[Rfam]
RNA sequence: AAGGCACCCAAUGAAACUCCCCAUGUCCUCGAAGGGAGUGGUUUAACUACCGCUCCCGUAGACGGCAUGGAGAG
Numbered sequence: 001a002a003g004g005c006a007c008c009c010a011a012u013g014a015a016a017c018u019c020c021c022c023a024u025g026u027c028c029u030c031g032a033a034g035g036g037a038g039u040g041g042u043u044u045a046a047c048u049a050c051c052g053c054u055c056c057c058g059u060a061g062a063c064g065g066c067a068u069g070g071a072g073a074g
Stems, first nucleotide, its partner, number of pairs: 017072004024067004029062002034057009

Shown here is a 74-nucleotide RNA sequence from Acidianus hospitalis, a member of the family "Sulfolobus sRNA133". Lineage of the source: Archaea > Thermoprotei > Sulfolobaceae > Acidianus > Acidianus hospitalis. The literature on the family includes a 2005 paper in Mol Microbiol by Tang et al., "Identification of novel non-coding RNAs as potential antisense regulators in the archaeon Sulfolobus solfataricus". About the family: This RNA has structural homologues in 3 archaeon Sulfolobus genomes: tokodaii, acidocalarius and solfotaricus. It shows extensive compensatory base changes, possibly consistent with a functional role. The base pairs follow the family's consensus structure.